[Rfam]
RNA sequence: CCUACCUCUAGAAGUGUUGCAGGUGUGAAUGCUGUGUCAUAUGUGCCAUAGUAGGUGGCAGAGAGGAGAUAGGCUAUAUCUACAUUCAGUGUUCUGACCUAUGAUCAUCUGAAUGAUUAGUGACCUAACAUU
Numbered sequence: 001c002c003u004a005c006c007u008c009u010a011g012a013a014g015u016g017u018u019g020c021a022g023g024u025g026u027g028a029a030u031g032c033u034g035u036g037u038c039a040u041a042u043g044u045g046c047c048a049u050a051g052u053a054g055g056u057g058g059c060a061g062a063g064a065g066g067a068g069a070u071a072g073g074c075u076a077u078a079u080c081u082a083c084a085u086u087c088a089g090u091g092u093u094c095u096g097a098c099c100u101a102u103g104a105u106c107a108u109c110u111g112a113a114u115g116a117u118u119a120g121u122g123a124c125c126u127a128a129c130a131u132u
Base pairs, nucleotide, nucleotide: 002061003060005058006057007055008054009053010052013049019046020045021044024041025040026039027038028037068129070127071126072125073124075122076121077120083115084114086112087111088110089109090107091106093104094103
Rfam assigns this 132-nucleotide RNA sequence from Mus spicilegus to the family "Small nucleolar RNA SNORA17". The family's RNA type in Rfam is H/ACA-box small nucleolar RNA. Rfam 15.1 lists 5,784 matches to the family in 673 species. Rfam describes the family as follows. snoRNA ACA 17 belongs to the H/ACA family of snoRNAs and is predicted to guide pseudouridylation of the 28S rRNA at positions U4659 and U4598. It shares the same host gene together with ACA43. NB This family has a high threshold value to exclude a large number of closely related sequences that do not appear to have conserved H and ACA boxes, and may be pseudogenes. A search with the family's covariance model found it, with a score of 108 bits.